[Rfam]
RNA sequence: ACCGCGUAAUUAUCUUCUAUAUAGUAGCUGAAAUACAUGUAUUUCGCCUACUAUGUAGCAGGUAAGUACGCGGUUU
Number, nucleotide and partner (000 for none) at each position: 001a074002c073003c072004g071005c070006g069007u068008a067009a000010u065011u064012a063013u062014c061015u060016u000017c058018u057019a056020u055021a054022u053023a052024g051025u050026a049027g048028c000029u046030g045031a044032a000033a042034u041035a040036c000037a000038u000039g000040u035041a034042u033043u000044u031045c030046g029047c000048c027049u026050a025051c024052u023053a022054u021055g020056u019057a018058g017059c000060a015061g014062g013063u012064a011065a010066g000067u008068a007069c006070g005071c004072g003073g002074u001075u000076u000